[Rfam]
RNA sequence: UCGUCAGGUAGGAUAAUCCUUACCUGUUUCUCCUUUUGGAAGGUGGAUUAGAACAUGGUGAUUGGAGUUGGCAUGACUUGUGAUUAACAGCUCUACAUAAUCAGGACUUGCAACACCCUGAUUGCUCAUAUCUGAU
Numbered sequence: 001u002c003g004u005c006a007g008g009u010a011g012g013a014u015a016a017u018c019c020u021u022a023c024c025u026g027u028u029u030c031u032c033c034u035u036u037u038g039g040a041a042g043g044u045g046g047a048u049u050a051g052a053a054c055a056u057g058g059u060g061a062u063u064g065g066a067g068u069u070g071g072c073a074u075g076a077c078u079u080g081u082g083a084u085u086a087a088c089a090g091c092u093c094u095a096c097a098u099a100a101u102c103a104g105g106a107c108u109u110g111c112a113a114c115a116c117c118c119u120g121a122u123u124g125c126u127c128a129u130a131u132c133u134g135a136u
Base pairs, nucleotide, nucleotide: 024046025045026044028043029042031040032039033038075093076092078090079089080088081086098124099123100122101121102120103119104118105117